[Rfam]
RNA sequence: ACACUCAUGAUUCGGGUUUCGGGACAAUGAAACCGUGUCACUAUCAGGUUCGUUGUCGACGAAAUUUGCAAAAUGAGCGA
Numbered sequence: 001a002c003a004c005u006c007a008u009g010a011u012u013c014g015g016g017u018u019u020c021g022g023g024a025c026a027a028u029g030a031a032a033c034c035g036u037g038u039c040a041c042u043a044u045c046a047g048g049u050u051c052g053u054u055g056u057c058g059a060c061g062a063a064a065u066u067u068g069c070a071a072a073a074u075g076a077g078c079g080a
Base pairs, nucleotide, nucleotide: 002079004077005076006075013068014067015066016065017064018063019062020061021060031050032049033048034047
Shown here is an 80-nucleotide RNA sequence from Operophtera brumata, a member of the family "mir-981 microRNA precursor family". NCBI's taxonomy places the organism under Eukaryota, Opisthokonta, Insecta, Heteroneura, Operophtera. A search with the family's covariance model found it, with a score of 56 bits.